[Rfam]
RNA sequence: AAUGUAUGAUGAUAGCAGUUUCGGUCCCAAAUGAACGAACUGUGAUUAGAAUGAGAUCAUCUGAUGUU
Numbered sequence: 001a002a003u004g005u006a007u008g009a010u011g012a013u014a015g016c017a018g019u020u021u022c023g024g025u026c027c028c029a030a031a032u033g034a035a036c037g038a039a040c041u042g043u044g045a046u047u048a049g050a051a052u053g054a055g056a057u058c059a060u061c062u063g064a065u066g067u068u
Base pairs, nucleotide, nucleotide: 001068002067003066004065
This 68-nucleotide RNA from Anguilla anguilla belongs to the Rfam family "Small nucleolar RNA SNORD73". The family's RNA type in Rfam is C/D-box small nucleolar RNA. The base pairs follow the family's consensus structure, which was predicted with PFOLD. Its family is annotated with nucleolus and RNA processing in the Gene Ontology. On this family, see Rebane et al., Gene 1998: "A novel snoRNA (U73) is encoded within the introns of the human and mouse ribosomal protein S3a genes". A search with the family's covariance model found it, with a score of 46 bits. The family has 25 seed sequences and 769 matches in Rfam 15.1.